The family of this 96-nucleotide sequence from Microbulbifer sp. THAF38 is "Group II catalytic intron D1-D4-1". The literature on the family includes a 2001 paper in EMBO J by Chu et al., "Control of branch-site choice by a group II intron".

RNA sequence: CGCCUCGGCCAGUAAUGGCCAAGGUGAUUGAACAGAAGUCAGCCGACGGCAUAGUAGCCUAAUACCAAGAUUAAUACCUUGGAUACGGUGAAGGCC
Numbered sequence: 001c002g003c004c005u006c007g008g009c010c011a012g013u014a015a016u017g018g019c020c021a022a023g024g025u026g027a028u029u030g031a032a033c034a035g036a037a038g039u040c041a042g043c044c045g046a047c048g049g050c051a052u053a054g055u056a057g058c059c060u061a062a063u064a065c066c067a068a069g070a071u072u073a074a075u076a077c078c079u080u081g082g083a084u085a086c087g088g089u090g091a092a093g094g095c096c
Stems, first nucleotide, its partner, number of pairs: 001026002004023002007020005038047003048096003057089003
NCBI's taxonomy places the organism under Bacteria, Pseudomonadota, Gammaproteobacteria, Microbulbiferaceae, Microbulbifer. Group II introns are found in rRNA, tRNA and mRNA of organelles in fungi, plants and protists, and also in mRNA in bacteria.